[Rfam]
RNA sequence: AUCAAGGGAGUAGCUGACGGAAGUAUCCGUUACAAGGUCGUCAAUCCGAAAGAAAUUUCCGGCCUUGUAUGAAAUAGCGAGACUUGUUUGAAUAAAACAAGUCUCUUUUU
Dot-bracket structure: ....(.((..((.(.....)...)).)).)((((((((((..((..(....)....)).)))))))))).........(((((((((((.....))))))))))).....
RNA: Streptococcus sRNA 10
Organism: Streptococcus himalayensis